[Rfam]
RNA sequence: CGGUGAUGUCUCCUGACCGCUAUCAAUGGAAAUACUCGGCUUUGCUGCGGGUCUUUGAAAAAAGAGGCCUUAGGUACCAUGUGUUACCAAUGGUGAAGUGUGAGGACAGGUUGGAUGCCUG
Numbered sequence: 001c002g003g004u005g006a007u008g009u010c011u012c013c014u015g016a017c018c019g020c021u022a023u024c025a026a027u028g029g030a031a032a033u034a035c036u037c038g039g040c041u042u043u044g045c046u047g048c049g050g051g052u053c054u055u056u057g058a059a060a061a062a063a064g065a066g067g068c069c070u071u072a073g074g075u076a077c078c079a080u081g082u083g084u085u086a087c088c089a090a091u092g093g094u095g096a097a098g099u100g101u102g103a104g105g106a107c108a109g110g111u112u113g114g115a116u117g118c119c120u121g
Stems, first nucleotide, its partner, number of pairs: 001019004007034003011030003035104004039099008049070008073088004107121005